[Rfam]
RNA sequence: ACUGGCGUUCACAAGGGGUUGGGGUCUCAGUCAUACCCGGCCGUUGAUAGCGCAAGGAGCAGAGCUCUGAACGCGUCUCCCGUGUUCGAUGGGUUCGAUCCUGUCCCUCCCAAAUCCUGUAGCUUUCAGACA
Numbered sequence: 001a002c003u004g005g006c007g008u009u010c011a012c013a014a015g016g017g018g019u020u021g022g023g024g025u026c027u028c029a030g031u032c033a034u035a036c037c038c039g040g041c042c043g044u045u046g047a048u049a050g051c052g053c054a055a056g057g058a059g060c061a062g063a064g065c066u067c068u069g070a071a072c073g074c075g076u077c078u079c080c081c082g083u084g085u086u087c088g089a090u091g092g093g094u095u096c097g098a099u100c101c102u103g104u105c106c107c108u109c110c111c112a113a114a115u116c117c118u119g120u121a122g123c124u125u126u127c128a129g130a131c132a
Stems, first nucleotide, its partner, number of pairs: 002056002005053005014045002017042005023037003067129005073123002084115003088111001091107003
This 132-nucleotide RNA sequence from Pterocles gutturalis belongs to the Rfam family "Small nucleolar RNA SNORA71". Pairs were carried over by alignment from the consensus structure, which was predicted with PFOLD. Rfam describes the family as follows. The members of this family belong to the H/ACA class of snoRNAs which bind a number of proteins (including dyskerin, Gar1p and Nop10p) to form snoRNP complexes. For this family Rfam cites "The family of box ACA small nucleolar RNAs is defined by an evolutionarily conserved secondary structure and ubiquitous sequence elements essential for RNA accumulation" (Ganot et al., Genes Dev, 1997). The match comes from Rfam's covariance-model search (72 bits). Rfam 15.1 lists 1,805 matches to the family in 606 species.